The family of this 159-nucleotide RNA from Chenopodium quinoa is "U1 spliceosomal RNA". Rfam classes the family as a spliceosomal small nuclear RNA. A reference for the family is Zwieb (1997), "The uRNA database", Nucleic Acids Res.
[Rfam]
RNA sequence: GAACAUACGCAGGGGUCAAUGGGUGAUCAAGAAGAUUCAUGGCCUAGGCAGGUGGUCUCCAUUGCACAUUAGGAGGGGGUGCCUGCUUAACAUCUUCCCAAGAGGAAGAGGGUACAUCAUAAUUUGUGAUAGAGGGAGCCUGCGUUUGCGCGACCCCUA
Numbered sequence: 001g002a003a004c005a006u007a008c009g010c011a012g013g014g015g016u017c018a019a020u021g022g023g024u025g026a027u028c029a030a031g032a033a034g035a036u037u038c039a040u041g042g043c044c045u046a047g048g049c050a051g052g053u054g055g056u057c058u059c060c061a062u063u064g065c066a067c068a069u070u071a072g073g074a075g076g077g078g079g080u081g082c083c084u085g086c087u088u089a090a091c092a093u094c095u096u097c098c099c100a101a102g103a104g105g106a107a108g109a110g111g112g113u114a115c116a117u118c119a120u121a122a123u124u125u126g127u128g129a130u131a132g133a134g135g136g137a138g139c140c141u142g143c144g145u146u147u148g149c150g151c152g153a154c155c156c157c158u159a
Stems, first nucleotide, its partner, number of pairs: 009118001012115001013045006020039005046088005056077003059073002090113002093109003097105002134158003141152004
It scores 86 bits against the family's covariance model.
Rfam's curators write: U1 is a small nuclear RNA (snRNA) component of the spliceosome (involved in pre-mRNA splicing).
The base pairs follow the family's consensus structure, which is taken from published work.